[Rfam]
About this RNA:
This 119-nucleotide sequence from Sporomusa silvacetica belongs to the Rfam family "Group II catalytic intron D1-D4-2". A search with the family's covariance model found it, with a score of 90 bits. Rfam describes the family as follows. Group II introns are found in rRNA, tRNA and mRNA of organelles in fungi, plants and protists, and also in mRNA in bacteria. The family has 144 seed sequences and 1,231 matches in Rfam 15.1. The base pairs follow the family's consensus structure. Its family is annotated with Group II intron splicing in the Gene Ontology.
RNA sequence: GAAGGUAGGCCCUUCGAAGCCAGUUUGUAGGGGCAGGCUUCAAACAGUCAUAAGCUGCUUCAAUCCGAAGGGUUGUGGUGGUGAACGUUAUGAUAAAAGCCGAGGCAAACUUCGGCAUG
Numbered sequence: 001g002a003a004g005g006u007a008g009g010c011c012c013u014u015c016g017a018a019g020c021c022a023g024u025u026u027g028u029a030g031g032g033g034c035a036g037g038c039u040u041c042a043a044a045c046a047g048u049c050a051u052a053a054g055c056u057g058c059u060u061c062a063a064u065c066c067g068a069a070g071g072g073u074u075g076u077g078g079u080g081g082u083g084a085a086c087g088u089u090a091u092g093a094u095a096a097a098a099g100c101c102g103a104g105g106c107a108a109a110c111u112u113c114g115g116c117a118u119g
Base pairs, nucleotide, nucleotide: 001015002014003013004012005011016041017040018039019038020037021036023034024033025032026031045119046118048093049092050091051090052089053088054082055081057079058078059077061075062074063073064072099116100115101114102113103112104111